[Rfam]
RNA: Small nucleolar RNA U2-30
RNA sequence: GAGCAAGAUGAAAAUGUUUUAUUACUGACCUUUAUAACUAUGAAGGUUUCUACAUUUGAUCUGAACUCA
Numbered sequence: 001g002a003g004c005a006a007g008a009u010g011a012a013a014a015u016g017u018u019u020u021a022u023u024a025c026u027g028a029c030c031u032u033u034a035u036a037a038c039u040a041u042g043a044a045g046g047u048u049u050c051u052a053c054a055u056u057u058g059a060u061c062u063g064a065a066c067u068c069a
Base pairs, nucleotide, nucleotide: 001068002067003066012033013032014031016029017028018027